[Rfam]
RNA sequence: ACGUGUCACGGGUGCUGUGCGUGGUGCCCGGGACAACAGACAGAAAACGUGCCUUGGGAAGAUCUGGGCACUUCAGGGUGUU
Numbered sequence: 001a002c003g004u005g006u007c008a009c010g011g012g013u014g015c016u017g018u019g020c021g022u023g024g025u026g027c028c029c030g031g032g033a034c035a036a037c038a039g040a041c042a043g044a045a046a047a048c049g050u051g052c053c054u055u056g057g058g059a060a061g062a063u064c065u066g067g068g069c070a071c072u073u074c075a076g077g078g079u080g081u082u
Stems, first nucleotide, its partner, number of pairs: 004035004009030008049071006056064001
Notes:
nrdJ RNA: an 82-nucleotide RNA sequence from Streptomyces lavendofoliae. The source organism's lineage runs through Bacteria, Actinomycetota, Actinomycetes, Streptomycetaceae and Streptomyces. A search with the family's covariance model found it, with a score of 76 bits.